mir-146 microRNA precursor family: a 92-nucleotide sequence from Anabas testudineus. The base pairs follow the family's consensus structure, which was predicted with WAR.

RNA sequence: GUAAGUGCUCUACUAUGAGAACUGAAUUCCAUAGAUGGUGGCAUCUUCAGGUGUCAUCUAUGGGCUCAGUUCUUUUGGCAUGGUACUAGUUU
Numbered sequence: 001g002u003a004a005g006u007g008c009u010c011u012a013c014u015a016u017g018a019g020a021a022c023u024g025a026a027u028u029c030c031a032u033a034g035a036u037g038g039u040g041g042c043a044u045c046u047u048c049a050g051g052u053g054u055c056a057u058c059u060a061u062g063g064g065c066u067c068a069g070u071u072c073u074u075u076u077g078g079c080a081u082g083g084u085a086c087u088a089g090u091u092u
Base pairs, nucleotide, nucleotide: 008083009082011080013078018073019072020071021070022069023068024067025066033059034058035057036056
A reference for the family is Lagos-Quintana et al. (2002), "Identification of tissue-specific microRNAs from mouse", Curr Biol. A search with the family's covariance model found it, with a score of 61 bits. Gene Ontology terms of the family: RISC complex and miRNA-mediated post-transcriptional gene silencing.